About this RNA:
A member of the RNA family "U1 spliceosomal RNA" from Peromyscus maniculatus, 175 nucleotides long. It scores 132 bits against the family's covariance model. It is annotated as a spliceosomal small nuclear RNA.

RNA sequence: AUGCUUACCUGGCAGGGGAGAUACCAUGAUCACGAAGUUGGUUUUCCCAGGGCGAGGCACUGGAUAUGCUCGCCCAUCACACUCCAGAUGUGCUGACCCUUGCGAUUUCCCCAAAUGCGGAAAACUCGACUGCAUAAUUUGUGGUAGUGGGGGACUGCGUUCGCGCUCUCCCCUG
Dot-bracket structure: ...........((((((((((.((((............))))))))))((((.(.(((.(.............................).)))..))))).((((((.((.......)))).).))).))))...............((((((..(((....)))..)))))).
Numbered sequence: 001a002u003g004c005u006u007a008c009c010u011g012g013c014a015g016g017g018g019a020g021a022u023a024c025c026a027u028g029a030u031c032a033c034g035a036a037g038u039u040g041g042u043u044u045u046c047c048c049a050g051g052g053c054g055a056g057g058c059a060c061u062g063g064a065u066a067u068g069c070u071c072g073c074c075c076a077u078c079a080c081a082c083u084c085c086a087g088a089u090g091u092g093c094u095g096a097c098c099c100u101u102g103c104g105a106u107u108u109c110c111c112c113a114a115a116u117g118c119g120g121a122a123a124a125c126u127c128g129a130c131u132g133c134a135u136a137a138u139u140u141g142u143g144g145u146a147g148u149g150g151g152g153g154a155c156u157g158c159g160u161u162c163g164c165g166c167u168c169u170c171c172c173c174u175g
Stems, first nucleotide, its partner, number of pairs: 012133004016048006023042004049101004054097001056094003060090001103128003106124001107122002110120002149174006157166003

Overview
The family's consensus secondary structure is taken from published work. Rfam 15.1 lists 40,184 matches to the family in 1,499 species.